[Rfam]
RNA: BsrC
RNA sequence: UAUUACUUAAAUAAUGAAAGCCCUGCCUCUCUUUCAUCCUUGCGGUUCCGUAACCGCGCCAGUGUAACUUUUGGCGUUUCCACGUAU
Numbered sequence: 001u002a003u004u005a006c007u008u009a010a011a012u013a014a015u016g017a018a019a020g021c022c023c024u025g026c027c028u029c030u031c032u033u034u035c036a037u038c039c040u041u042g043c044g045g046u047u048c049c050g051u052a053a054c055c056g057c058g059c060c061a062g063u064g065u066a067a068c069u070u071u072u073g074g075c076g077u078u079u080c081c082a083c084g085u086a087u
Base pairs, nucleotide, nucleotide: 034067036065039062040061041058042057043056044055045054046053047052